[Rfam]
Rfam assigns this 89-nucleotide RNA from Drosophila pseudoobscura to the family "mir-276 microRNA precursor family".
Rfam's curators put it in the seed alignment.
Pairs were carried over by alignment from the consensus structure, which was predicted with RNAalifold.
The family has 42 seed sequences and 200 matches in Rfam 15.1.
RNA sequence: CCUGGUUUUUGCCAUCAGCGAGGUAUAGAGUUCCUACGUUCAUAUUAUAAACUCGUAGGAACUUCAUACCGUGCUCUUGGAAGACCAAA
Dot-bracket structure: ...........(((..((((.(((((.((((((((((.................)))))))))).))))).))))..))).........